Rfam assigns this 64-nucleotide RNA sequence from Flavobacterium sediminis to the family "DUF805 RNA". Clan: DUF805 clan. Rfam 15.1 lists 281 matches to the family in 219 species. Pairs were carried over by alignment from the consensus structure, which is taken from published work. Lineage of the source: Bacteria > Pseudomonadati > Flavobacteriia > Flavobacteriales > Flavobacterium.
[Rfam]
RNA sequence: UAAAAAAGGAGUUCAGAAACCAUAAAACGAGGCGGAACCGAAAAGCCAGAUGAGUAGGGUAAAC
Numbered sequence: 001u002a003a004a005a006a007a008g009g010a011g012u013u014c015a016g017a018a019a020c021c022a023u024a025a026a027a028c029g030a031g032g033c034g035g036a037a038c039c040g041a042a043a044a045g046c047c048a049g050a051u052g053a054g055u056a057g058g059g060u061a062a063a064c
Base pairs, nucleotide, nucleotide: 006023008021009020031047032046033045038058039057